RNA sequence: GUGUGUCGCUGGGGGAGGCCUGUGCCUGAGAUUUCGGAUUUUCCCGAAAGACCCCUCGCACCUGAUCCGGAUAAUACCGGCGUAGGGAAGCGGCUUUGGCAUAAC
Numbered sequence: 001g002u003g004u005g006u007c008g009c010u011g012g013g014g015g016a017g018g019c020c021u022g023u024g025c026c027u028g029a030g031a032u033u034u035c036g037g038a039u040u041u042u043c044c045c046g047a048a049a050g051a052c053c054c055c056u057c058g059c060a061c062c063u064g065a066u067c068c069g070g071a072u073a074a075u076a077c078c079g080g081c082g083u084a085g086g087g088a089a090g091c092g093g094c095u096u097u098g099g100c101a102u103a104a105c
Base pairs, nucleotide, nucleotide: 006093007092008091009090010089011055012054013053014052017026018025019024033048034047035046036045037044061086062085063084064083067080068079069078070077
Annotation
The family of this 105-nucleotide RNA from Desulfonatronospira thiodismutans is "TPP riboswitch aptamer (THI element)". Its family is annotated with thiamine pyrophosphate binding in the Gene Ontology. The organism belongs to Desulfonatronospira thiodismutans, within Bacteria. The family's consensus secondary structure is taken from published work. It scores 76 bits against the family's covariance model.